[Rfam]
RNA sequence: AUACUUACCUGGCAGGGAAGAUAGCAUGAAGGUGGUUUUCCCAGGGCAAGACUUCAUCCACUCUGGAUGUGCUGACCUCUGAUUUCCCCGAAUGCAGGAAGCUUGACUGCGUAAUCUGUGGUAGUGGGGAACUGUGCUAGCAUUCUCCCCUG
Numbered sequence: 001a002u003a004c005u006u007a008c009c010u011g012g013c014a015g016g017g018a019a020g021a022u023a024g025c026a027u028g029a030a031g032g033u034g035g036u037u038u039u040c041c042c043a044g045g046g047c048a049a050g051a052c053u054u055c056a057u058c059c060a061c062u063c064u065g066g067a068u069g070u071g072c073u074g075a076c077c078u079c080u081g082a083u084u085u086c087c088c089c090g091a092a093u094g095c096a097g098g099a100a101g102c103u104u105g106a107c108u109g110c111g112u113a114a115u116c117u118g119u120g121g122u123a124g125u126g127g128g129g130a131a132c133u134g135u136g137c138u139a140g141c142a143u144u145c146u147c148c149c150c151u152g
Stems, first nucleotide, its partner, number of pairs: 012110004016042002019039003023036001025034003043080004050073001052071001055069002057066002081104002083101003087097001126150004131146001134143003

The record is a 152-nucleotide RNA from Fukomys damarensis, which matches "U1 spliceosomal RNA" in Rfam.
It scores 74 bits against the family's covariance model.
Pairs were carried over by alignment from the consensus structure, which is taken from published work.
It is annotated as a spliceosomal small nuclear RNA.